[Rfam]
RNA: Small nucleolar RNA SNORD87
Organism: Rhinoptilus africanus
RNA sequence: GCUGGCACAAUGAUGAUCGCUCUUUGCCGUUUACCCAGCUGAAUGUUGUGAUGAGCAGUGUCCAAUCUGACGUGCCAGC
Numbered sequence: 001g002c003u004g005g006c007a008c009a010a011u012g013a014u015g016a017u018c019g020c021u022c023u024u025u026g027c028c029g030u031u032u033a034c035c036c037a038g039c040u041g042a043a044u045g046u047u048g049u050g051a052u053g054a055g056c057a058g059u060g061u062c063c064a065a066u067c068u069g070a071c072g073u074g075c076c077a078g079c
Stems, first nucleotide, its partner, number of pairs: 001079007